A member of the RNA family "tRNA" from Synechococcus phage S-CREM1, 71 nucleotides long. It scores 58 bits against the family's covariance model. Transfer RNA (tRNA) molecules are approximately 80 nucleotides in length. The family's RNA type in Rfam is transfer RNA.
RNA sequence: GUGUCGUUAGCCUAGUGGUAAGGCAGUGGUUUGUGGAUCCACCUAGAUGGGUUCAAUUCCCAUACGGCACC
Numbered sequence: 001g002u003g004u005c006g007u008u009a010g011c012c013u014a015g016u017g018g019u020a021a022g023g024c025a026g027u028g029g030u031u032u033g034u035g036g037a038u039c040c041a042c043c044u045a046g047a048u049g050g051g052u053u054c055a056a057u058u059c060c061c062a063u064a065c066g067g068c069a070c071c
Base pairs, nucleotide, nucleotide: 001070002069003068004067005066006065007064010024011023012022013021026042027041028040029039047063048062049061050060051059